Rfam assigns this 74-nucleotide RNA from Crocodylus porosus to the family "Mammalian CPEB3 ribozyme". Rfam links the family to the GO term RNA nuclease activity.
RNA sequence: AAAUGCUAUAUAGGCCAUAACAUAAGCACUCACAGCAUGGCCUGUCAGAUUCCAAUGCAUCUGCAAAUUCUGUU
Numbered sequence: 001a002a003a004u005g006c007u008a009u010a011u012a013g014g015c016c017a018u019a020a021c022a023u024a025a026g027c028a029c030u031c032a033c034a035g036c037a038u039g040g041c042c043u044g045u046c047a048g049a050u051u052c053c054a055a056u057g058c059a060u061c062u063g064c065a066a067a068u069u070c071u072g073u074u
Stems, first nucleotide, its partner, number of pairs: 013042004019074004024069002026038001046063005052057001